RNA sequence: CCCUGGCACACAGUGUAUUGGUCUGUGUGUGUGUGUGUCUACAGCUACAUUGUCUGCUGGGUUU
Numbered sequence: 001c002c003c004u005g006g007c008a009c010a011c012a013g014u015g016u017a018u019u020g021g022u023c024u025g026u027g028u029g030u031g032u033g034u035g036u037g038u039c040u041a042c043a044g045c046u047a048c049a050u051u052g053u054c055u056g057c058u059g060g061g062u063u064u
Stems, first nucleotide, its partner, number of pairs: 003060006010053008023044004

Rfam assigns this 64-nucleotide RNA from Ictalurus punctatus to the family "mir-221 microRNA precursor family". It is one of the family's seed sequences. The literature on the family includes a 2008 paper in J Virol by Yao et al., "MicroRNA profile of Marek's disease virus-transformed T-cell line MSB-1: predominance of virus-encoded microRNAs". Pairs were carried over by alignment from the consensus structure, which was predicted with RNAalifold. Lineage of the source: Eukaryota > Chordata > Otophysi > Characiphysae > Ictalurus. Rfam links the family to the GO terms RISC complex and miRNA-mediated post-transcriptional gene silencing. Rfam 15.1 lists 1,797 matches to the family in 643 species.